[Rfam]
RNA sequence: UAUAUUUGCGCCUCCAAUAAAUAAAUAUUGGUUACAUAAGAAUUAUUUACAAAAAUAUUGGCAUG
Numbered sequence: 001u002a003u004a005u006u007u008g009c010g011c012c013u014c015c016a017a018u019a020a021a022u023a024a025a026u027a028u029u030g031g032u033u034a035c036a037u038a039a040g041a042a043u044u045a046u047u048u049a050c051a052a053a054a055a056u057a058u059u060g061g062c063a064u065g
Base pairs, nucleotide, nucleotide: 014031015030016029017028018027019026